Record summary: MIR5565 microRNA precursor family: a 109-nucleotide RNA sequence from Sorghum bicolor. The base pairs follow the family's consensus structure, which was predicted with RNAalifold. Rfam 15.1 lists 3,346 matches to the family in 5 species.

RNA sequence: GUAGUCGGAUUCAUAUCAAUCCACAUGUCUUGAGGUGGAUUGGAGUUGAAUUUGAACUAAAUUCCACGUCAACCCACACCAACACACAUGGACUAAAGUGAAUCCGACA
Numbered sequence: 001g002u003a004g005u006c007g008g009a010u011u012c013a014u015a016u017c018a019a020u021c022c023a024c025a026u027g028u029c030u031u032g033a034g035g036u037g038g039a040u041u042g043g044a045g046u047u048g049a050a051u052u053u054g055a056a057c058u059a060a061a062u063u064c065c066a067c068g069u070c071a072a073c074c075c076a077c078a079c080c081a082a083c084a085c086a087c088a089u090g091g092a093c094u095a096a097a098g099u100g101a102a103u104c105c106g107a108c109a
Stems, first nucleotide, its partner, number of pairs: 004108011016096001018094001020092004026086003030082003035077004040072004045067002